[Rfam]
RNA sequence: GUUGCAAAUUUGAGGCCAUAGCAGAAUUGCUUAUAGUAUGGCCAUGUCAGAUUCCAAUGAAUCUACAAAUUCUGCU
Numbered sequence: 001g002u003u004g005c006a007a008a009u010u011u012g013a014g015g016c017c018a019u020a021g022c023a024g025a026a027u028u029g030c031u032u033a034u035a036g037u038a039u040g041g042c043c044a045u046g047u048c049a050g051a052u053u054c055c056a057a058u059g060a061a062u063c064u065a066c067a068a069a070u071u072c073u074g075c076u
Stems, first nucleotide, its partner, number of pairs: 014043004020076007028038002049064006
RNA: Mammalian CPEB3 ribozyme
Organism: Alligator mississippiensis